[Rfam]
RNA sequence: AAUGGGUAAGCCGAAAACCAUAUAUAGAGUAGGCA
Numbered sequence: 001a002a003u004g005g006g007u008a009a010g011c012c013g014a015a016a017a018c019c020a021u022a023u024a025u026a027g028a029g030u031a032g033g034c035a
Base pairs, nucleotide, nucleotide: 002021003020004019005018010034011033012032
The record is a 35-nucleotide sequence from Flavobacterium geliluteum, which matches "DUF805b RNA" in Rfam. Pairs were carried over by alignment from the consensus structure, which is taken from published work. The source organism's lineage runs through Bacteria, Pseudomonadati, Bacteroidota, Flavobacteriia and Flavobacterium.